[Rfam]
RNA sequence: AUCUUGGGAGUUGAAUAAUCUCGUAUAACGUCGGGGAUAUGGCCCGAAAGUCUCUACCCGAAAACCUUAAAUUUUUGGACUACGAGUAAGCGUCAAUAAGAG
Numbered sequence: 001a002u003c004u005u006g007g008g009a010g011u012u013g014a015a016u017a018a019u020c021u022c023g024u025a026u027a028a029c030g031u032c033g034g035g036g037a038u039a040u041g042g043c044c045c046g047a048a049a050g051u052c053u054c055u056a057c058c059c060g061a062a063a064a065c066c067u068u069a070a071a072u073u074u075u076u077g078g079a080c081u082a083c084g085a086g087u088a089a090g091c092g093u094c095a096a097u098a099a100g101a102g
Stems, first nucleotide, its partner, number of pairs: 020086006031047005058078007
RNA: Purine riboswitch aptamer
Organism: Paenibacillus sp. UNCCL117